[Rfam]
RNA: terC RNA
RNA sequence: ACCGGGGUCCGGGCCCCUCUGACGGUGUGGGUCGCCCACCGUGAUGUCGGACCUUCUUC
Number, nucleotide and partner (000 for none) at each position: 001a000002c000003c000004g000005g000006g053007g052008u051009c050010c049011g048012g047013g000014c000015c000016c000017c000018u000019c000020u000021g000022a042023c041024g040025g039026u038027g037028u000029g035030g000031g000032u000033c000034g000035c029036c000037c027038a026039c025040c024041g023042u022043g000044a000045u000046g000047u012048c011049g010050g009051a008052c007053c006054u000055u000056c000057u000058u000059c000